[Rfam]
RNA sequence: CUGUCCCGUCACGUGGAACACCACUCGCCGAGAGCGCCCCGGCGGCUACUCUGGCUUGGUGCGCCCUCCGCCGAGGAGGGCGCAAAGCCGACAGCCGUCGCACCCAGGGAGCUCACCCAUG
Number, nucleotide and partner (000 for none) at each position: 001c000002u000003g000004u000005c000006c000007c000008g000009u000010c000011a000012c000013g000014u000015g000016g000017a000018a000019c000020a000021c000022c000023a000024c000025u000026c000027g000028c000029c000030g000031a000032g000033a000034g000035c000036g000037c000038c000039c000040c000041g000042g000043c000044g000045g000046c000047u000048a000049c000050u000051c000052u000053g000054g000055c000056u000057u000058g000059g000060u084061g083062c082063g081064c000065c079066c078067u077068c076069c000070g000071c000072c000073g000074a000075g000076g068077a067078g066079g065080g000081c063082g062083c061084a060085a000086a000087g101088c100089c000090g099091a098092c097093a000094g000095c000096c000097g092098u091099c090100g088101c087102a000103c000104c000105c000106a000107g000108g000109g000110a000111g000112c000113u000114c000115a000116c000117c000118c000119a000120u000121g000
RNA: Streptomyces-metH RNA
Organism: Streptomyces bingchenggensis